[Rfam]
RNA sequence: AAAAUGGGUCGCUAGGGUUCCGGUCGGUGGUAUGAAAAUCCACUGAUGCUGGUCCGAGAGCAACCGACCUUCACAGCAAGGUUACACGGCGGGAUAAAAACCCGGGAGGU
Numbered sequence: 001a002a003a004a005u006g007g008g009u010c011g012c013u014a015g016g017g018u019u020c021c022g023g024u025c026g027g028u029g030g031u032a033u034g035a036a037a038a039u040c041c042a043c044u045g046a047u048g049c050u051g052g053u054c055c056g057a058g059a060g061c062a063a064c065c066g067a068c069c070u071u072c073a074c075a076g077c078a079a080g081g082u083u084a085c086a087c088g089g090c091g092g093g094a095u096a097a098a099a100a101c102c103c104g105g106g107a108g109g110u
Base pairs, nucleotide, nucleotide: 007065008064009063011061012060015055016054020052021051022049023047024046025045026044027043028042029041030040066083067082068081069080070079071078085105087108091103092102093101
Overview:
This 110-nucleotide sequence from Thiothrix caldifontis belongs to the Rfam family "Guanidine-I riboswitch aptamer". The organism belongs to Thiothrix, within Bacteria.